RNA sequence: AGUAAGUGGAGCCGUUCAACCACAAGAAUAAACGGGGAGUAUCUGAAAAGCCUUAAGAGUAGGACAACU
Dot-bracket structure: .....((((..........))))............((.....[[......)).........]]......
About this RNA: Shown here is a 69-nucleotide RNA sequence from Salibacter halophilus, a member of the family "DUF805 RNA". Rfam 15.1 lists 281 matches to the family in 219 species. Clan: DUF805 clan. Rfam classes the family as a cis-regulatory element.